[Rfam]
A member of the RNA family "Ribosomal protein L20 leader" from Siminovitchia fortis, 137 nucleotides long. It is annotated as a cis-regulatory leader. For this family Rfam cites "Diverse mechanisms for regulating ribosomal protein synthesis in Escherichia coli" (Zengel and Lindahl, Prog Nucleic Acid Res Mol Biol, 1994). Pairs were carried over by alignment from the consensus structure, which was predicted with CMfinder. This family is a putative r-protein leader autoregulatory structure found in B. subtilis and other low-GC Gram-positive bacteria. It is located in the 5' untranslated regions of mRNAs encoding initiation factor 3 followed by ribosomal proteins L35 and L20 (infC-rpmI-rplT). A Rho-independent transcription terminator structure that is probably involved in regulation is included at the 3' end.

RNA sequence: UUGUGUAAGAAGGAGCUGCCCGCUUCUCGCCUGAUUGACGCAUCCAUGCUGUUGACAGGUUAUGAAUGUAUAGCAAUUAUCCAUACGUUAUGUAUGAUUAAGUGCGGGCCCUUUGCGGCCCGCAUUUUUUAUGGACC
Numbered sequence: 001u002u003g004u005g006u007a008a009g010a011a012g013g014a015g016c017u018g019c020c021c022g023c024u025u026c027u028c029g030c031c032u033g034a035u036u037g038a039c040g041c042a043u044c045c046a047u048g049c050u051g052u053u054g055a056c057a058g059g060u061u062a063u064g065a066a067u068g069u070a071u072a073g074c075a076a077u078u079a080u081c082c083a084u085a086c087g088u089u090a091u092g093u094a095u096g097a098u099u100a101a102g103u104g105c106g107g108g109c110c111c112u113u114u115g116c117g118g119c120c121c122g123c124a125u126u127u128u129u130u131a132u133g134g135a136c137c
Base pairs, nucleotide, nucleotide: 011027012026013025014024015023016022029060030059031058037053038052039051040049041048103124104123105122106121107120108119109118110117